RNA: Glycine riboswitch aptamer
Organism: Aquirhabdus parva
RNA sequence: UAAGACGCUGCAGGAGAGACUGGAGUCACUUGUGCAUCAUCCAGCGCCGAAGGAGCAACCACCCCGGAAACUCUCAGGCAAAAGGACUGUAGCGUCAAU
Numbered sequence: 001u002a003a004g005a006c007g008c009u010g011c012a013g014g015a016g017a018g019a020c021u022g023g024a025g026u027c028a029c030u031u032g033u034g035c036a037u038c039a040u041c042c043a044g045c046g047c048c049g050a051a052g053g054a055g056c057a058a059c060c061a062c063c064c065c066g067g068a069a070a071c072u073c074u075c076a077g078g079c080a081a082a083a084g085g086a087c088u089g090u091a092g093c094g095u096c097a098a099u
Stems, first nucleotide, its partner, number of pairs: 006094008020044004046079003049075002053073003059067002